[Rfam]
RNA sequence: CUGUCUCCAGCUUCAACAGUGUUUGGAGGGAACAG
Numbered sequence: 001c002u003g004u005c006u007c008c009a010g011c012u013u014c015a016a017c018a019g020u021g022u023u024u025g026g027a028g029g030g031a032a033c034a035g
Stems, first nucleotide, its partner, number of pairs: 001035004006031003012027005017021001
Shown here is a 35-nucleotide RNA sequence from Myotis davidii, a member of the family "Iron response element I". The base pairs follow the family's consensus structure, which is taken from published work. Gene Ontology term of the family: response to iron ion. Lineage of the source: Eukaryota > Eutheria > Boreoeutheria > Laurasiatheria > Myotis. A reference for the family is Hentze et al. (1987), "Identification of the iron-responsive element for the translational regulation of human ferritin mRNA", Science.